[Rfam]
RNA sequence: GAAGUUUGCCAGACAGUCGCCGCCGUUGCAUGCAGCGGGGGAGGAAAGUCCGGGCUCCACAGGGCAGGAUGCCGGCUAACGGCCGGGCGUCGCGAGGCGACGGAAAGUGCAACAGAGAGCUGAACCGCCGAUGGCCCCUCCGGGGGAUCAGGUAAGGGUGAAAAGGUGCGGUAAGAGCGCACCGCAGCCGUGGCAACACGGUCUGGCAGGGUAAACCCCAUCCGGAGCAAGACCAAAUAGGCAGGCGUUGAAGGUGCCCCCUGAGCCUGCGGGUAGGUUGCUUGAGUCCGCCAGUAAUGGCGGGCCUAGAGGAAUGACUGUCAGUCGUGCCCUGGCAACAGGGCAAGGCAACAGAACCCGGCUUAUCGGCAGACUUCCACA
Dot-bracket structure: ((((((((((((((((((.((.((((((....)))))).))....[[[.[[[[[((((...[[[[.((((((((((.....)))))(((((....)))).)((...((((..............(((((....(((((....))))..).)))..)).......((((((.......))))))(((((((((....))))).))).)...))..)))))))))))))...((((......((((((.....(((.]]]])))..)))))).....))))......((((((((....))))))))..........)))))))..................................]]]]]]]].).))))))))))....
This 381-nucleotide RNA sequence from Leeia aquatica belongs to the Rfam family "Bacterial RNase P class A". The base pairs follow the family's consensus structure, which is taken from published work. The organism belongs to Leeia, within Bacteria. It is annotated as a ribozyme.